RNA: Lysine riboswitch aptamer
Organism: Thalassotalea sp. ND16A
RNA sequence: GGGAGCAGAAGAGGAGCGUUAACCAGGCAGUUAUCUCGAGGGGCCUCACCCCGUAGACAGGUAACCAGGGGGAUUAACGCCGAGAUGACAGUCAUAAGGUAAUACUGUUGUCGGACGAUUGGGUUGAAUCCCGUCGGCUGUCACUUAACGAUACCCUUAAGGGUUUAUUUGGUUUAAGUGGAGAGCUUCUGGUAUU
Numbered sequence: 001g002g003g004a005g006c007a008g009a010a011g012a013g014g015a016g017c018g019u020u021a022a023c024c025a026g027g028c029a030g031u032u033a034u035c036u037c038g039a040g041g042g043g044c045c046u047c048a049c050c051c052c053g054u055a056g057a058c059a060g061g062u063a064a065c066c067a068g069g070g071g072g073a074u075u076a077a078c079g080c081c082g083a084g085a086u087g088a089c090a091g092u093c094a095u096a097a098g099g100u101a102a103u104a105c106u107g108u109u110g111u112c113g114g115a116c117g118a119u120u121g122g123g124u125u126g127a128a129u130c131c132c133g134u135c136g137g138c139u140g141u142c143a144c145u146u147a148a149c150g151a152u153a154c155c156c157u158u159a160a161g162g163g164u165u166u167a168u169u170u171g172g173u174u175u176a177a178g179u180g181g182a183g184a185g186c187u188u189c190u191g192g193u194a195u196u
Stems, first nucleotide, its partner, number of pairs: 006191006016080007024072001030065007084112009095101001113139002116136003120133004141181007